Source information
A member of the RNA family "Small nucleolar RNA snoR60" from Zea mays, 75 nucleotides long. Rfam links the family to the GO terms nucleolus and RNA processing. Pairs were carried over by alignment from the consensus structure, which was predicted with PFOLD. NCBI's taxonomy places the organism under Eukaryota, Viridiplantae, Streptophyta, Spermatophyta, Zea. A search with the family's covariance model found it, with a score of 89 bits.

RNA sequence: CCAUAAAUGAUGAUUUUACUCGGAUUCCCCUUCAGGACAUCAAAAUGGAUGAUGCAAAUUCGAGUUUCUGAUGUG
Numbered sequence: 001c002c003a004u005a006a007a008u009g010a011u012g013a014u015u016u017u018a019c020u021c022g023g024a025u026u027c028c029c030c031u032u033c034a035g036g037a038c039a040u041c042a043a044a045a046u047g048g049a050u051g052a053u054g055c056a057a058a059u060u061c062g063a064g065u066u067u068c069u070g071a072u073g074u075g
Stems, first nucleotide, its partner, number of pairs: 002075004